Shown here is an 87-nucleotide RNA from Gossypium australe, a member of the family "mir-160 microRNA precursor family". The organism belongs to Gossypium, within Eukaryota.
[Rfam]
RNA sequence: AUCUGCCUGGCUCCCUGCAUGCCAACUAUGGAUGCUGUCAAAAAUGGAUUGGCCCUUCCUAGUUGGCAUCAGAGGAGUCAAGCAGGU
Numbered sequence: 001a002u003c004u005g006c007c008u009g010g011c012u013c014c015c016u017g018c019a020u021g022c023c024a025a026c027u028a029u030g031g032a033u034g035c036u037g038u039c040a041a042a043a044a045u046g047g048a049u050u051g052g053c054c055c056u057u058c059c060u061a062g063u064u065g066g067c068a069u070c071a072g073a074g075g076a077g078u079c080a081a082g083c084a085g086g087u
Base pairs, nucleotide, nucleotide: 001087002086003085004084005083006082008080009079010078011077012076013075014074016072019069020068021067022066023065024064027061028060